A member of the RNA family "Small nucleolar RNA SNORA29" from Notothenia coriiceps, 141 nucleotides long.
The family is grouped with related families in Rfam's "SNORA20 clan".
For this family Rfam cites "RNomics: an experimental approach that identifies 201 candidates for novel, small, non-messenger RNAs in mouse" (Huttenhofer et al., EMBO J, 2001).
Lineage of the source: Eukaryota > Bilateria > Euteleostomi > Percomorphaceae > Notothenia.
A search with the family's covariance model found it, with a score of 53 bits.
Gene Ontology terms of the family: RNA processing and nucleolus.
Rfam's curators write: ACA29 is a member of the H/ACA class of snoRNA that guide the sites of modification of uridines to pseudouridines.

RNA sequence: AAUCCUGUUAUAGUACCAGAUCUGCCUUUUGAUACAGAUGUAUGGCUAUGCUAACAGGAGAGAGAAACACUCCGUCAAAGUCUGAAGAGGUUGAGCAGCCACAUUUCUGCCACCUCUAAUGAAAUGAUGGUACAAAAUGAA
Number, nucleotide and partner (000 for none) at each position: 001a000002a000003u000004c058005c057006u056007g055008u000009u000010a000011u000012a000013g000014u000015a000016c045017c044018a043019g000020a000021u000022c000023u000024g000025c000026c000027u000028u000029u000030u000031g000032a000033u000034a000035c000036a000037g000038a000039u000040g000041u000042a000043u018044g017045g016046c000047u000048a000049u000050g000051c000052u000053a000054a000055c007056a006057g005058g004059a000060g000061a000062g000063a000064g000065a000066a000067a000068c000069a000070c000071u000072c000073c000074g128075u127076c126077a125078a000079a000080g000081u000082c000083u000084g000085a000086a000087g000088a000089g000090g000091u000092u000093g116094a115095g114096c000097a000098g000099c000100c000101a000102c000103a000104u000105u000106u000107c000108u000109g000110c000111c000112a000113c000114c095115u094116c093117u000118a000119a000120u000121g000122a000123a000124a000125u077126g076127a075128u074129g000130g000131u000132a000133c000134a000135a000136a000137a000138u000139g000140a000141a000